The family of this 112-nucleotide RNA from Paenibacillus solanacearum is "SAM riboswitch aptamer (S box leader)". The organism belongs to Paenibacillus, within Bacteria.
RNA sequence: CUCUUAUCCAGAGUUCGGUGGAGGGACUGGCCCGAUGAAACCGCGGCAACCGGCUUGCUUGUCAAGCACGGUGCAAAUUCCUGCAAGGCACGCAUGCCUUGGAAGAUGAGAG
Numbered sequence: 001c002u003c004u005u006a007u008c009c010a011g012a013g014u015u016c017g018g019u020g021g022a023g024g025g026a027c028u029g030g031c032c033c034g035a036u037g038a039a040a041c042c043g044c045g046g047c048a049a050c051c052g053g054c055u056u057g058c059u060u061g062u063c064a065a066g067c068a069c070g071g072u073g074c075a076a077a078u079u080c081c082u083g084c085a086a087g088g089c090a091c092g093c094a095u096g097c098c099u100u101g102g103a104a105g106a107u108g109a110g111a112g
Stems, first nucleotide, its partner, number of pairs: 001112008013044001016043004023033003027083001029081002046074003050071002053067004079104001084101006